[Rfam]
RNA sequence: CAGUAGAUGCACCCUGAUGACUGCCCUCAGUUCACGCUGAGGGUUUUUUGU
Numbered sequence: 001c002a003g004u005a006g007a008u009g010c011a012c013c014c015u016g017a018u019g020a021c022u023g024c025c026c027u028c029a030g031u032u033c034a035c036g037c038u039g040a041g042g043g044u045u046u047u048u049u050g051u
Stems, first nucleotide, its partner, number of pairs: 003012002024043008

Shown here is a 51-nucleotide sequence from Symplocastrum torsivum, a member of the family "Nitrogen stress-induced RNA 1". A search with the family's covariance model found it, with a score of 43 bits. The pairing is the family consensus, mapped onto this sequence. Rfam classes the family as a small RNA.